Notes: This 118-nucleotide sequence from Denticeps clupeoides belongs to the Rfam family "Small nucleolar RNA SNORA26". Lineage of the source: Eukaryota > Neopterygii > Otomorpha > Clupei > Denticeps. Rfam describes the family as follows. The snoRNA HBI-6 belong to the H/ACA family of snoRNAs, guiding the pseudouridylation of position U4522 if the 28S rRNA. HBI-6 is the human orthologue of mouse MBI-6 snoRNA. Its family is annotated with nucleolus and RNA processing in the Gene Ontology.
[Rfam]
RNA sequence: UUGCCCAUUUACGACCCGAAGUGUCCUAAAUGUUGAACGCAGGGGGGUAGAUAAAUUCUCUCAUAAACCUAAAGUAAAGGCAAUUUCCUUGCUUUGGAUCCUGUCGGGAGAAACACUG
Numbered sequence: 001u002u003g004c005c006c007a008u009u010u011a012c013g014a015c016c017c018g019a020a021g022u023g024u025c026c027u028a029a030a031u032g033u034u035g036a037a038c039g040c041a042g043g044g045g046g047g048u049a050g051a052u053a054a055a056u057u058c059u060c061u062c063a064u065a066a067a068c069c070u071a072a073a074g075u076a077a078a079g080g081c082a083a084u085u086u087c088c089u090u091g092c093u094u095u096g097g098a099u100c101c102u103g104u105c106g107g108g109a110g111a112a113a114c115a116c117u118g
Stems, first nucleotide, its partner, number of pairs: 002049005008043003017035001056112001058110005069097007077089001079087001082086001
Dot-bracket structure: .(((((.(((......(.................).....))).)))))......(.(((((......(((((((.(.(..(...)).).)))))))........))))).)......